[Rfam]
RNA sequence: AUGAUCGUAUGAUGAUAUACAAACGCAAAAUCUUAGGACACCUUCUUACAUGGCUUAUGCUGUGGAUGAGAGUGAAAGUUCUCUGACGAUCAU
Numbered sequence: 001a002u003g004a005u006c007g008u009a010u011g012a013u014g015a016u017a018u019a020c021a022a023a024c025g026c027a028a029a030a031u032c033u034u035a036g037g038a039c040a041c042c043u044u045c046u047u048a049c050a051u052g053g054c055u056u057a058u059g060c061u062g063u064g065g066a067u068g069a070g071a072g073u074g075a076a077a078g079u080u081c082u083c084u085g086a087c088g089a090u091c092a093u
Base pairs, nucleotide, nucleotide: 001093002092003091004090005089006088007087046052